[Rfam]
RNA sequence: GGAAACUUGAGAAAGGCUGCCCCUAGUACGAGAGGACCGGGGUGGACGAACCUCUGGUGUGCCAGUUGUUCUGCCAAGAGCACGGCUGGUUGGCUACGUUCGGAAGUGAUAACCGCUGAAAGCAUCUAAGCGGGAAGCAUGUUUCAAGAUGAGGUUUCCCACUGGUUAACCAGGUAAGGCCCCCAGCAGACCACUGGGUUGAUAGGCCGGAAGUAGAAGUGCAGCAAUGCAUGGAGCUGACCGGUACUAAUAGGCCGAGG
Numbered sequence: 001g002g003a004a005a006c007u008u009g010a011g012a013a014a015g016g017c018u019g020c021c022c023c024u025a026g027u028a029c030g031a032g033a034g035g036a037c038c039g040g041g042g043u044g045g046a047c048g049a050a051c052c053u054c055u056g057g058u059g060u061g062c063c064a065g066u067u068g069u070u071c072u073g074c075c076a077a078g079a080g081c082a083c084g085g086c087u088g089g090u091u092g093g094c095u096a097c098g099u100u101c102g103g104a105a106g107u108g109a110u111a112a113c114c115g116c117u118g119a120a121a122g123c124a125u126c127u128a129a130g131c132g133g134g135a136a137g138c139a140u141g142u143u144u145c146a147a148g149a150u151g152a153g154g155u156u157u158c159c160c161a162c163u164g165g166u167u168a169a170c171c172a173g174g175u176a177a178g179g180c181c182c183c184c185a186g187c188a189g190a191c192c193a194c195u196g197g198g199u200u201g202a203u204a205g206g207c208c209g210g211a212a213g214u215a216g217a218a219g220u221g222c223a224g225c226a227a228u229g230c231a232u233g234g235a236g237c238u239g240a241c242c243g244g245u246a247c248u249a250a251u252a253g254g255c256c257g258a259g260g
Stems, first nucleotide, its partner, number of pairs: 001159008011145004017045007047102005055096003062089005067082006106140003113133005162173003175258001178256004182198005203249003206245005212238002219232005
About this RNA: This 260-nucleotide part of an RNA from Aeromicrobium flavum belongs to the Rfam family "Bacterial large subunit ribosomal RNA". The literature on the family includes a 2001 paper in Science by Yusupov et al., "Crystal structure of the ribosome at 5.5 A resolution".